The family of this 110-nucleotide RNA from Trifolium subterraneum is "MIR390 microRNA precursor family". It scores 105 bits against the family's covariance model. A reference for the family is Gustafson et al. (2005), "ASRP: the Arabidopsis Small RNA Project Database", Nucleic Acids Res. The source organism's lineage runs through Eukaryota, Euphyllophyta, Pentapetalae, Fabales and Trifolium.
RNA sequence: UAGGAGAGUCUGUUAAGCUCAGGAGGGAUAGCGCCAUUAAUCCAUAUGUAUUUACAUUUACAUAUGGUGUUAUUUGGCGCUAUCCAUCCUGAGUUUUACUGGUUCUUCUU
Numbered sequence: 001u002a003g004g005a006g007a008g009u010c011u012g013u014u015a016a017g018c019u020c021a022g023g024a025g026g027g028a029u030a031g032c033g034c035c036a037u038u039a040a041u042c043c044a045u046a047u048g049u050a051u052u053u054a055c056a057u058u059u060a061c062a063u064a065u066g067g068u069g070u071u072a073u074u075u076g077g078c079g080c081u082a083u084c085c086a087u088c089c090u091g092a093g094u095u096u097u098a099c100u101g102g103u104u105c106u107u108c109u110u
Stems, first nucleotide, its partner, number of pairs: 010101001016095009026085010